[Rfam]
RNA sequence: UGCCAAACGCGUUAGAAAGCUCUCGACGGGCGUGGUACCGUUGCCCGCUGCGGGAUCCUGAGAUGCGUGAGA
Numbered sequence: 001u002g003c004c005a006a007a008c009g010c011g012u013u014a015g016a017a018a019g020c021u022c023u024c025g026a027c028g029g030g031c032g033u034g035g036u037a038c039c040g041u042u043g044c045c046c047g048c049u050g051c052g053g054g055a056u057c058c059u060g061a062g063a064u065g066c067g068u069g070a071g072a
Base pairs, nucleotide, nucleotide: 007068008067009066010065011064012063013062022054023053024052025051
Dot-bracket structure: ......(((((((........((((.........................)))).......)))))))....
Trypanosomatid snoRNA TB9Cs1H3: a 72-nucleotide RNA from Trypanosoma conorhini. A reference for the family is Liang et al. (2005), "A genome-wide analysis of C/D and H/ACA-like small nucleolar RNAs in Trypanosoma brucei reveals a trypanosome-specific pattern of rRNA modification", RNA. It scores 40 bits against the family's covariance model. Lineage of the source: Eukaryota > Kinetoplastea > Trypanosomatida > Trypanosomatidae > Trypanosoma.